Shown here is a 70-nucleotide RNA from Bombyx mori, a member of the family "mir-2774 microRNA precursor family".
[Rfam]
RNA sequence: ACAAUAUUUGAACCGUCGUCGGUCUGCCGAGCAAUUUCACCAGUUCGGUGGAAGAUCUCCCCUUCGUCGU
Number, nucleotide and partner (000 for none) at each position: 001a000002c000003a000004a067005u066006a000007u000008u000009u000010g061011a000012a000013c000014c000015g000016u000017c000018g056019u055020c054021g000022g000023u052024c051025u050026g049027c048028c047029g046030a045031g044032c043033a000034a000035u000036u000037u000038c000039a000040c000041c000042a000043g032044u031045u030046c029047g028048g027049u026050g025051g024052a023053a000054g020055a019056u018057c000058u000059c000060c000061c010062c000063u000064u000065c000066g005067u004068c000069g000070u000
The organism belongs to Bombyx, within Eukaryota. For this family Rfam cites "MicroRNAs of Bombyx mori identified by Solexa sequencing" (Liu et al., BMC Genomics, 2010).